The record is a 101-nucleotide RNA from Paramixta manurensis, which matches "Tryptophan operon leader" in Rfam. Rfam classes the family as a cis-regulatory leader. The family's consensus secondary structure is taken from published work. A reference for the family is Kolter and Yanofsky (1982), "Attenuation in amino acid biosynthetic operons", Annu Rev Genet.
[Rfam]
RNA sequence: AAAGGUUGGUGGCGCACUUCUCCCUAUUAGGGCGACGUCGUCAUGCACCUGCGUAUAACCGAAGUGCUGAGACCUGAGCCCGCUAAAGCGGGCUUUUUUUU
Numbered sequence: 001a002a003a004g005g006u007u008g009g010u011g012g013c014g015c016a017c018u019u020c021u022c023c024c025u026a027u028u029a030g031g032g033c034g035a036c037g038u039c040g041u042c043a044u045g046c047a048c049c050u051g052c053g054u055a056u057a058a059c060c061g062a063a064g065u066g067c068u069g070a071g072a073c074c075u076g077a078g079c080c081c082g083c084u085a086a087a088g089c090g091g092g093c094u095u096u097u098u099u100u101u
Stems, first nucleotide, its partner, number of pairs: 009044004016038002019035002022032004077094007